Annotation
TPP riboswitch aptamer (THI element): a 106-nucleotide RNA sequence from Peptostreptococcus russellii. Taxonomically the source falls in Peptostreptococcus (Bacteria, Bacillati, Bacillota, Peptostreptococcaceae). Pairs were carried over by alignment from the consensus structure, which is taken from published work.

RNA sequence: AAUAAUAUAUGAGGGGGCUGAUAAAUCGGCUGAGAUAAGGAUGUGAUCCUUGACCUUUGAACCUGAUCUGGGUAAUGCCAGCGUAGGAAUUAUAAUUUUUAUGGAU
Numbered sequence: 001a002a003u004a005a006u007a008u009a010u011g012a013g014g015g016g017g018c019u020g021a022u023a024a025a026u027c028g029g030c031u032g033a034g035a036u037a038a039g040g041a042u043g044u045g046a047u048c049c050u051u052g053a054c055c056u057u058u059g060a061a062c063c064u065g066a067u068c069u070g071g072g073u074a075a076u077g078c079c080a081g082c083g084u085a086g087g088a089a090u091u092a093u094a095a096u097u098u099u100u101a102u103g104g105a106u
Base pairs, nucleotide, nucleotide: 006094007093008092009091011057012056013055014054017030018029019028020027021026037051038050039049040048041047062087063086064085065084068081069080070079071078